[Rfam]
RNA sequence: GGAACGGGCCUUUCAGGCAUCCUCUCCCAAAAACUUUCCAAGGCCGGUCCUCGCGACCGGCCUUUUUUUUUGGCCUAC
Numbered sequence: 001g002g003a004a005c006g007g008g009c010c011u012u013u014c015a016g017g018c019a020u021c022c023u024c025u026c027c028c029a030a031a032a033a034c035u036u037u038c039c040a041a042g043g044c045c046g047g048u049c050c051u052c053g054c055g056a057c058c059g060g061c062c063u064u065u066u067u068u069u070u071u072g073g074c075c076u077a078c
Base pairs, nucleotide, nucleotide: 008018009017010016011015041063042062043061044060045059046058047057048056049055
Dot-bracket structure: .......((((...))))......................(((((((((.....)))))))))...............
Makes More Granules Regulator RNA (mmgR): a 78-nucleotide RNA from Novosphingobium sp. ST904. Rfam classes the family as a small RNA. The family is grouped with related families in Rfam's "suhB sRNA clan". It scores 56 bits against the family's covariance model. The literature on the family includes a 2005 paper in Genome Biol by Corbino et al., "Evidence for a second class of S-adenosylmethionine riboswitches and other regulatory RNA motifs in alpha-proteobacteria". The organism belongs to Novosphingobium, within Bacteria. Rfam 15.1 lists 1,791 matches to the family in 918 species.